A member of the RNA family "M-box riboswitch aptamer (ykoK leader)" from Alicyclobacillus acidoterrestris, 167 nucleotides long.
Nucleotides: 167
Base pairs, nucleotide, nucleotide: 005163006162007161008160009159010158011154012153013096015150016149017148020144021143022142025140026139028137029136030135031134032133039114040113041112042111043110045074046073047072048071049070054065055064056063057062081105082104083103084102087099088098089097116128117127118126
Number, partner (000 for none) and nucleotide at each position: 001000u002000g003000u004000a005163a006162u007161c008160c009159u010158c011154g012153u013096u014000a015150g016149g017148c018000g019000a020144g021143g022142c023000u024000c025140c026139u027000a028137u029136a030135c031134g032133a033000a034000u035000a036000c037000a038000u039114g040113c041112c042111a043110c044000u045074g046073c047072c048071c049070g050000g051000a052000a053000a054065c055064g056063u057062g058000g059000a060000a061000a062057c063056a064055c065054g066000c067000c068000a069000a070049u071048g072047g073046g074045u075000u076000g077000a078000a079000c080000a081105g082104g083103u084102a085000u086000c087099g088098c089097c090000g091000g092000a093000c094000u095000a096013a097089g098088g099087c100000c101000c102084u103083a104082c105081u106000u107000a108000a109000u110043g111042u112041g113040g114039c115000u116128g117127g118126g119000u120000g121000c122000a123000a124000a125000c126118c127117c128116u129000a130000c131000u132000g133032u134031c135030g136029u137028a138000c139026a140025g141000u142022g143021c144020c145000a146000a147000a148017g149016c150015u151000c152000a153012a154011c155000u156000a157000g158010g159009g160008g161007g162006a163005u164000u165000g166000u167000g

It scores 149 bits against the family's covariance model.